RNA sequence: UCCACCCAACAAACCCCGAGUUCCCUUCUUCCUCCUCCUCCUCCAUGCUUCUCACAACAUCAUCAUCGUCAUCUUCUCCCGUUACCCGCAACAUGAAGCUCUAAGACCAACAUCCCUCGACACGAUCAAGAUCUCACCACUUCACGAUGAUCCUCAAGAUUCAGAGUUAUGAUCGAUUUGUUCUAGAUUCAACCAUCUCUCCCUCUCUUUCAUGCUUUUGUGUUGUAUUUUGCUGC
Numbered sequence: 001u002c003c004a005c006c007c008a009a010c011a012a013a014c015c016c017c018g019a020g021u022u023c024c025c026u027u028c029u030u031c032c033u034c035c036u037c038c039u040c041c042u043c044c045a046u047g048c049u050u051c052u053c054a055c056a057a058c059a060u061c062a063u064c065a066u067c068g069u070c071a072u073c074u075u076c077u078c079c080c081g082u083u084a085c086c087c088g089c090a091a092c093a094u095g096a097a098g099c100u101c102u103a104a105g106a107c108c109a110a111c112a113u114c115c116c117u118c119g120a121c122a123c124g125a126u127c128a129a130g131a132u133c134u135c136a137c138c139a140c141u142u143c144a145c146g147a148u149g150a151u152c153c154u155c156a157a158g159a160u161u162c163a164g165a166g167u168u169a170u171g172a173u174c175g176a177u178u179u180g181u182u183c184u185a186g187a188u189u190c191a192a193c194c195a196u197c198u199c200u201c202c203c204u205c206u207c208u209u210u211c212a213u214g215c216u217u218u219u220g221u222g223u224u225g226u227a228u229u230u231u232g233c234u235g236c
Stems, first nucleotide, its partner, number of pairs: 080232001081230001088223003095134001097132001099130002104126001143214002146211001147209001149207001157198004164190005171183002174180001

The family of this 236-nucleotide RNA from Raphanus sativus is "TeloSII non coding RNA 30". Rfam describes the family as follows. Located downstream of the TeloSII elements. These elements have been shown to coordinate the expression of protein-coding gene related to ribosome biogenesis throughout the cell cycle in Arabidopsis. For this family Rfam cites "Promoter-based identification of novel non-coding RNAs reveals the presence of dicistronic snoRNA-miRNA genes in Arabidopsis thaliana" (Qu et al., BMC Genomics, 2015). It is annotated as a small RNA. The family has 2 seed sequences and 20 matches in Rfam 15.1. The family's consensus secondary structure was predicted with RNAfold. It scores 95 bits against the family's covariance model. The source organism's lineage runs through Eukaryota, Embryophyta, Pentapetalae, Brassiceae and Raphanus. Gene Ontology term of the family: ncRNA polyadenylation.